drz-agam-1 ribozyme: a 79-nucleotide sequence from Hermetia illucens. A search with the family's covariance model found it, with a score of 38 bits. Rfam 15.1 lists 10,507 matches to the family in 53 species. The organism belongs to Hermetia, within Eukaryota.

RNA sequence: UACUACCAAACCCUAUCUCUACCUCCAAGUGGUAAUCGCUGGGAGUUCUUUCUUUACGAAAAGCUGCAGAAGGAGAAGG
Numbered sequence: 001u002a003c004u005a006c007c008a009a010a011c012c013c014u015a016u017c018u019c020u021a022c023c024u025c026c027a028a029g030u031g032g033u034a035a036u037c038g039c040u041g042g043g044a045g046u047u048c049u050u051u052c053u054u055u056a057c058g059a060a061a062a063g064c065u066g067c068a069g070a071a072g073g074a075g076a077a078g079g
Stems, first nucleotide, its partner, number of pairs: 012079003016075001018073003021033003045065001047063001049061004